[Rfam]
The family of this 62-nucleotide RNA from Tupaia belangeri is "mir-497 microRNA precursor family". It is one of the family's seed sequences. On this family, see Gu et al., FEBS Lett 2007: "Identification and characterization of microRNAs from the bovine adipose tissue and mammary gland". The organism belongs to Tupaia belangeri, within Eukaryota.
RNA sequence: CAGCAGCACACUGUGGUUUGUACGGCACUGUGGCCACGUCCAAACCACACUGUGGUGUUAGA
Numbered sequence: 001c002a003g004c005a006g007c008a009c010a011c012u013g014u015g016g017u018u019u020g021u022a023c024g025g026c027a028c029u030g031u032g033g034c035c036a037c038g039u040c041c042a043a044a045c046c047a048c049a050c051u052g053u054g055g056u057g058u059u060a061g062a
Stems, first nucleotide, its partner, number of pairs: 002059004007054004012049009022039003025034002